[Rfam]
RNA sequence: AUCCUGUGAUGACAAAAUCAAAUAACUUUUCUGACACCUACUAUGAGAGCUGUACUCCAGCUCCUGAUUCUGUCUUUAUUCUGAGGCUC
Number, nucleotide and partner (000 for none) at each position: 001a088002u000003c086004c085005u000006g000007u000008g000009a000010u000011g000012a000013c000014a000015a000016a000017a000018u000019c000020a000021a000022a000023u000024a000025a000026c000027u000028u000029u000030u000031c000032u000033g000034a000035c000036a000037c000038c000039u000040a000041c000042u000043a000044u000045g000046a000047g000048a000049g061050c060051u059052g058053u000054a000055c000056u000057c000058c052059a051060g050061c049062u000063c000064c000065u000066g000067a000068u000069u000070c000071u000072g000073u000074c000075u000076u000077u000078a000079u000080u000081c000082u000083g000084a000085g004086g003087c000088u001089c000
About this RNA:
The family of this 89-nucleotide RNA from Sander lucioperca is "Small nucleolar RNA SNORD60". The literature on the family includes a 2002 paper in Mol Cell Biol by Galardi et al., "Purified box C/D snoRNPs are able to reproduce site-specific 2'-O-methylation of target RNA in vitro". Gene Ontology terms of the family: RNA processing and nucleolus. The family has 22 seed sequences and 825 matches in Rfam 15.1. Rfam classes the family as a C/D-box small nucleolar RNA. Clan: SNORD60 clan. The match comes from Rfam's covariance-model search (50 bits).